[Rfam]
RNA sequence: GCCUGCAUGGCUGUGCGAGUCUUCCUUGGCAGUGUUCGCGUCUGCGCAGCGCUACAAGGCGAUAGAUCGAUCGGCCACUGCCAAAGGAGACUUGCCCAGCGAUGCAGCU
Numbered sequence: 001g002c003c004u005g006c007a008u009g010g011c012u013g014u015g016c017g018a019g020u021c022u023u024c025c026u027u028g029g030c031a032g033u034g035u036u037c038g039c040g041u042c043u044g045c046g047c048a049g050c051g052c053u054a055c056a057a058g059g060c061g062a063u064a065g066a067u068c069g070a071u072c073g074g075c076c077a078c079u080g081c082c083a084a085a086g087g088a089g090a091c092u093u094g095c096c097c098a099g100c101g102a103u104g105c106a107g108c109u
Stems, first nucleotide, its partner, number of pairs: 005105004011099003015095005021089004027083008
Notes
mir-399 microRNA precursor family: a 109-nucleotide RNA sequence from Paspalum vaginatum. The literature on the family includes a 2004 paper in Mol Cell by Jones-Rhoades and Bartel, "Computational Identification of Plant MicroRNAs and Their Targets, Including a Stress-Induced miRNA". Its family is annotated with RISC complex and miRNA-mediated post-transcriptional gene silencing in the Gene Ontology. The organism belongs to Paspalum, within Eukaryota.